Description: The family of this 244-nucleotide RNA from Terrapene triunguis is "Small nucleolar RNA SNORD17". Gene Ontology terms of the family: nucleolus and RNA processing.
RNA sequence: GUGAAGUGAUGAUGAAUCCAUUCUCAGAGCGCUGCUGCAAUGCCCUCCCUGCAGCACGCAGAUUCCUAUUCUAGGGUCCCCGUGCUGUGCAGCCUCCAAAUACCCGCCAGCCUUUCAUUGUUCUGCUGCGAGCUGCUUGUGUGUCUGGCCAACUCUGUGCAGGAGAGGGGCAGAGCCAGCAGGGCGGGAGCCCCUCUUCAUGGGGGCUCUGUCUCAGCUAAGACGAGUGAUGCUGUCUGAUCAC
Numbered sequence: 001g002u003g004a005a006g007u008g009a010u011g012a013u014g015a016a017u018c019c020a021u022u023c024u025c026a027g028a029g030c031g032c033u034g035c036u037g038c039a040a041u042g043c044c045c046u047c048c049c050u051g052c053a054g055c056a057c058g059c060a061g062a063u064u065c066c067u068a069u070u071c072u073a074g075g076g077u078c079c080c081c082g083u084g085c086u087g088u089g090c091a092g093c094c095u096c097c098a099a100a101u102a103c104c105c106g107c108c109a110g111c112c113u114u115u116c117a118u119u120g121u122u123c124u125g126c127u128g129c130g131a132g133c134u135g136c137u138u139g140u141g142u143g144u145c146u147g148g149c150c151a152a153c154u155c156u157g158u159g160c161a162g163g164a165g166a167g168g169g170g171c172a173g174a175g176c177c178a179g180c181a182g183g184g185c186g187g188g189a190g191c192c193c194c195u196c197u198u199c200a201u202g203g204g205g206g207c208u209c210u211g212u213c214u215c216a217g218c219u220a221a222g223a224c225g226a227g228u229g230a231u232g233c234u235g236u237c238u239g240a241u242c243a244c
Stems, first nucleotide, its partner, number of pairs: 010243004019229005025222001029218002034180004038175001041172005046166002049163002051160002053086006061078002064076004089158004095152001102142002104139001108135004113131002116128002119125002182215003187210003191206005
The snoRNA HBI-43 belongs to the C/D family of snoRNAs, guiding 2'O-ribose methylation at position U3797 of the 28S rRNA. Pseudouridylation in position U3797 is predicted to be guided by the H/ACA snoRNA ACA48.